ALIL pseudoknot: a 150-nucleotide RNA sequence from Skermania sp. ID1734.
RNA sequence: AGCGUUUUUCGCGGCAGCGGAGCUCGACCGCAAACUGAAGUGAUCACCGCUUACAUCGACGAACACAGAGACCAGGUCGUCGAUGGCCACAAGCUCGGAGUCGAGCCGAUCUGCACGGUGCUGCGCACCGCGGGCGUGCAGAUCGCUCCG
Numbered sequence: 001a002g003c004g005u006u007u008u009u010c011g012c013g014g015c016a017g018c019g020g021a022g023c024u025c026g027a028c029c030g031c032a033a034a035c036u037g038a039a040g041u042g043a044u045c046a047c048c049g050c051u052u053a054c055a056u057c058g059a060c061g062a063a064c065a066c067a068g069a070g071a072c073c074a075g076g077u078c079g080u081c082g083a084u085g086g087c088c089a090c091a092a093g094c095u096c097g098g099a100g101u102c103g104a105g106c107c108g109a110u111c112u113g114c115a116c117g118g119u120g121c122u123g124c125g126c127a128c129c130g131c132g133g134g135c136g137u138g139c140a141g142a143u144c145g146c147u148c149c150g
Base pairs, nucleotide, nucleotide: 017031018030019029020028096150097149098148099147100146107145108144110142111141112140113139114138115137116136

Taxonomically the source falls in Skermania (Bacteria, Bacillati, Actinomycetota, Actinomycetes). A reference for the family is Mazauric et al. (2008), "Apical loop-internal loop RNA pseudoknots: a new type of stimulator of -1 translational frameshifting in bacteria", J Biol Chem.